[Rfam]
RNA sequence: GGCCCGGCUCUUGCUCUGCACCAUGCAGAGGUAGCCAACGGCGGUUGCCCUACUACACGACAAAGGCGUCGC
Numbered sequence: 001g002g003c004c005c006g007g008c009u010c011u012u013g014c015u016c017u018g019c020a021c022c023a024u025g026c027a028g029a030g031g032u033a034g035c036c037a038a039c040g041g042c043g044g045u046u047g048c049c050c051u052a053c054u055a056c057a058c059g060a061c062a063a064a065g066g067c068g069u070c071g072c
Stems, first nucleotide, its partner, number of pairs: 030049007
This 72-nucleotide sequence from Metapseudomonas resinovorans belongs to the Rfam family "narK RNA". The family's RNA type in Rfam is cis-regulatory element.